RNA sequence: CCUGCACGGCUAGACCGCAGGUCGGGAUGUGAUCCGCGAGCGUGCAUGCGAUACGAGGCGCUCGAGAGAGGUGACAGCGGUUGUCGCCGAGGCGAUUGAACCAGGAA
Numbered sequence: 001c002c003u004g005c006a007c008g009g010c011u012a013g014a015c016c017g018c019a020g021g022u023c024g025g026g027a028u029g030u031g032a033u034c035c036g037c038g039a040g041c042g043u044g045c046a047u048g049c050g051a052u053a054c055g056a057g058g059c060g061c062u063c064g065a066g067a068g069a070g071g072u073g074a075c076a077g078c079g080g081u082u083g084u085c086g087c088c089g090a091g092g093c094g095a096u097u098g099a100a101c102c103a104g105g106a107a
Base pairs, nucleotide, nucleotide: 001021002020003019004018005017024102025101031097032096033095034094

The record is a 107-nucleotide RNA sequence, which matches "eL15-Euryarchaeota ribosomal protein leader" in Rfam.
A reference for the family is Eckert and Weinberg (2020), "Discovery of 20 novel ribosomal leader candidates in bacteria and archaea", BMC Microbiol.
Rfam's curators put it in the seed alignment.